This 103-nucleotide RNA sequence from Populus deltoides belongs to the Rfam family "MIR474 microRNA precursor family".
Its family is annotated with miRNA-mediated post-transcriptional gene silencing and RISC complex in the Gene Ontology.
It scores 52 bits against the family's covariance model.
Taxonomically the source falls in Populus (Eukaryota, Streptophytina, Spermatophyta, Gunneridae).
The family's consensus secondary structure was predicted with WAR.
RNA sequence: AAUAAUAUGGUUGCAUCACUGGGCAACUGGACCUAUUGCUAUUGGGUCCUGUUAGACAACGCUAUUUGGUCUUGUCAAGCCAGAUCCAACAACAUUUUUUUGA
Numbered sequence: 001a002a003u004a005a006u007a008u009g010g011u012u013g014c015a016u017c018a019c020u021g022g023g024c025a026a027c028u029g030g031a032c033c034u035a036u037u038g039c040u041a042u043u044g045g046g047u048c049c050u051g052u053u054a055g056a057c058a059a060c061g062c063u064a065u066u067u068g069g070u071c072u073u074g075u076c077a078a079g080c081c082a083g084a085u086c087c088a089a090c091a092a093c094a095u096u097u098u099u100u101u102g103a
Base pairs, nucleotide, nucleotide: 001101002100004098005097007095008094009093010090011089012088013087015085016084017083019079020078022076023075024074025073026072029049030048031047032046033045034044035043037041053068054067055066056065